[Rfam]
RNA sequence: CGUCACUGUCCGCCGCGACAGCCGGAGCCGGGGACCCACCGAAUCCCUGGGGUGAAUCGGCCCACUCCUUCGCGGAGCGGCCGUAGGGCAACCCUUCCGAAGCACCCCCGCCCGAACCCGACAGCUAACCCGGUAGGCGGAGCAGUGGAAGGAG
Numbered sequence: 001c002g003u004c005a006c007u008g009u010c011c012g013c014c015g016c017g018a019c020a021g022c023c024g025g026a027g028c029c030g031g032g033g034a035c036c037c038a039c040c041g042a043a044u045c046c047c048u049g050g051g052g053u054g055a056a057u058c059g060g061c062c063c064a065c066u067c068c069u070u071c072g073c074g075g076a077g078c079g080g081c082c083g084u085a086g087g088g089c090a091a092c093c094c095u096u097c098c099g100a101a102g103c104a105c106c107c108c109c110g111c112c113c114g115a116a117c118c119c120g121a122c123a124g125c126u127a128a129c130c131c132g133g134u135a136g137g138c139g140g141a142g143c144a145g146u147g148g149a150a151g152g153a154g
Stems, first nucleotide, its partner, number of pairs: 001024001027134006037049002050119003058083004086113004
This 154-nucleotide RNA from Streptomyces pilosus belongs to the Rfam family "c-di-AMP riboswitch aptamer (ydaO/yuaA leader)". Pairs were carried over by alignment from the consensus structure. It scores 66 bits against the family's covariance model. Lineage of the source: Bacteria > Bacillati > Actinomycetota > Actinomycetes > Streptomyces.